The family of this 127-nucleotide RNA from Muntiacus reevesi is "U11 spliceosomal RNA". By type it is a spliceosomal small nuclear RNA.

[Rfam]
RNA sequence: UGCUUCUGUCGUGAGUGGCACACGUAGGGCAGCUCGUUUGCUCUACGUGCGGAAUCGACAUCAAGAGAUUUCGGAAGCAUAAUUUUUGCUAAUAGGGCAGCUGGUGAUCGUUGGUCCUGGUGCCCCC
Number, nucleotide and partner (000 for none) at each position: 001u000002g078003c077004u076005u075006c074007u020008g019009u018010c017011g016012u000013g000014a000015g000016u011017g010018g009019c008020a007021c049022a048023c047024g046025u045026a044027g043028g042029g041030c040031a039032g038033c000034u000035c000036g000037u000038u032039u031040g030041c029042u028043c027044u026045a025046c024047g023048u022049g021050c073051g072052g071053a070054a069055u068056c067057g000058a000059c000060a000061u000062c000063a000064a000065g000066a000067g056068a055069u054070u053071u052072c051073g050074g006075a005076a004077g003078c002079a000080u000081a000082a000083u000084u000085u000086u000087u000088g000089c000090u000091a000092a000093u000094a000095g125096g124097g123098c122099a000100g121101c120102u119103g118104g117105u000106g116107a115108u114109c113110g000111u000112u000113g109114g108115u107116c106117c104118u103119g102120g101121u100122g098123c097124c096125c095126c000127c000